Group II catalytic intron D1-D4-6: a 219-nucleotide RNA. Group II introns are found in rRNA, tRNA and mRNA of organelles in fungi, plants and protists, and also in mRNA in bacteria. Rfam links the family to the GO term Group II intron splicing. For this family Rfam cites "The ins and outs of group II introns" (Bonen and Vogel, Trends Genet, 2001). The base pairs follow the family's consensus structure.
RNA sequence: UGUGCAUUCCAUCCAGAAGGAUUUAGCAAGUCACUGGAAGCGAGUCUUGCAUGGGUCUUAGCGAUGAGGCUUGUGAAGCGUAGACAGCGGGUACAAAAGCCGCGUAAUUGAGCCACGAAAUAGGUAAACAUUGUAAGAGGCUUUCACCGUUUGGUGCGUGGGAGCGAUCGUGGACGCGCGAUAAGCGAGUGCGGACACCUCUGCCGGGGUCUGAGAGCG
Dot-bracket structure: ...........(((((...(((([.[[.)))).))))).((..(((((((((((((((((....)))))))))))...)).)))).))....................((.(((.((..................(((((((..(((..........)))..)))....(((..(((((.....]].])))))..)))))))..)).)))).)......